[Rfam]
A member of the RNA family "Small nucleolar RNA SNORA68" from Otolemur garnettii, 132 nucleotides long. About the family: U68 is a member of the H/ACA class of small nucleolar RNAs (snoRNAs) which act as guides in the the modification of uridines to pseudouridines. Rfam links the family to the GO terms nucleolus and RNA processing. The source organism's lineage runs through Eukaryota, Metazoa, Gnathostomata, Amniota and Otolemur.
RNA sequence: CUUGCACCUAAACCCAGGAAUCUCUGAUUCUUGCAGCAGUAGCUUAAACACAGGUAGAAACAGCAGGAAGAUCUCAUUGUCUUUGGGGGGCUGUAACCUUGCCCCUUAAAGUGAAUUUGUGGCAGUGCCUGC
Numbered sequence: 001c002u003u004g005c006a007c008c009u010a011a012a013c014c015c016a017g018g019a020a021u022c023u024c025u026g027a028u029u030c031u032u033g034c035a036g037c038a039g040u041a042g043c044u045u046a047a048a049c050a051c052a053g054g055u056a057g058a059a060a061c062a063g064c065a066g067g068a069a070g071a072u073c074u075c076a077u078u079g080u081c082u083u084u085g086g087g088g089g090g091c092u093g094u095a096a097c098c099u100u101g102c103c104c105c106u107u108a109a110a111g112u113g114a115a116u117u118u119g120u121g122g123c124a125g126u127g128c129c130u131g132c
Base pairs, nucleotide, nucleotide: 002059003058006055007054008053009052019044021042024039025038026037028035072122073121075119081111082110083109084108085107086106087105088104089103090102091101